[Rfam]
RNA: SAM (S-adenosyl methionine) riboswitch aptamer
Organism: Krasilnikoviella flava
RNA sequence: GGUCAUGAGCUCCGACGCGAAGCCCCGGCUCGUCGGACGGCAACCCCCAGCGCGGGUGGGUGCCCCGGGUGAGGACCAGGCCCGCCGUCGCCGACGGCGCGGCAACACGCGACC
Numbered sequence: 001g002g003u004c005a006u007g008a009g010c011u012c013c014g015a016c017g018c019g020a021a022g023c024c025c026c027g028g029c030u031c032g033u034c035g036g037a038c039g040g041c042a043a044c045c046c047c048c049a050g051c052g053c054g055g056g057u058g059g060g061u062g063c064c065c066c067g068g069g070u071g072a073g074g075a076c077c078a079g080g081c082c083c084g085c086c087g088u089c090g091c092c093g094a095c096g097g098c099g100c101g102g103c104a105a106c107a108c109g110c111g112a113c114c
Stems, first nucleotide, its partner, number of pairs: 001077004009038001011037006021030002039064003044060003047055002080103003083099007